[Rfam]
RNA: RT-14 RNA
RNA sequence: CUCUAAUAUCUUUCCAGAUAGCUAUUUUUAAGGAAAUUGCUCAGUGAAGUAUUAGGUAUUAAAGAGGUUUAUUCCUUCCUAUUUUAGGUAAAUAUGAAUCAUUAAAAUACAUACCAGUAGGUAAACCGAGAGUAUGUAUUUUAA
Numbered sequence: 001c002u003c004u005a006a007u008a009u010c011u012u013u014c015c016a017g018a019u020a021g022c023u024a025u026u027u028u029u030a031a032g033g034a035a036a037u038u039g040c041u042c043a044g045u046g047a048a049g050u051a052u053u054a055g056g057u058a059u060u061a062a063a064g065a066g067g068u069u070u071a072u073u074c075c076u077u078c079c080u081a082u083u084u085u086a087g088g089u090a091a092a093u094a095u096g097a098a099u100c101a102u103u104a105a106a107a108u109a110c111a112u113a114c115c116a117g118u119a120g121g122u123a124a125a126c127c128g129a130g131a132g133u134a135u136g137u138a139u140u141u142u143a144a
Stems, first nucleotide, its partner, number of pairs: 003055007013047002020041003024037005078088004102144013120127002